RNA sequence: AAGCGAUUCUUAGCGCUAGUUCCCCAAGAUGGGCUUGAAAGCUCAGCGGGGAAAACGAGGAGAAGGUUGUCGAAACGUCAGCGGAUGCCUUCCGGCCGUCCCAGUCGAUACGGCCUGCCGAAAGAUGAGGAGCGAUUCUCAUGACAAAGGCAGCUCGAGGGACCUGU
Numbered sequence: 001a002a003g004c005g006a007u008u009c010u011u012a013g014c015g016c017u018a019g020u021u022c023c024c025c026a027a028g029a030u031g032g033g034c035u036u037g038a039a040a041g042c043u044c045a046g047c048g049g050g051g052a053a054a055a056c057g058a059g060g061a062g063a064a065g066g067u068u069g070u071c072g073a074a075a076c077g078u079c080a081g082c083g084g085a086u087g088c089c090u091u092c093c094g095g096c097c098g099u100c101c102c103a104g105u106c107g108a109u110a111c112g113g114c115c116u117g118c119c120g121a122a123a124g125a126u127g128a129g130g131a132g133c134g135a136u137u138c139u140c141a142u143g144a145c146a147a148a149g150g151c152a153g154c155u156c157g158a159g160g161g162a163c164c165u166g167u
Stems, first nucleotide, its partner, number of pairs: 020053006062092005070081001072079002093107004098102001111157003115153003125142007
RNA: glmS glucosamine-6-phosphate activated ribozyme aptamer
Organism: Mitsuokella jalaludinii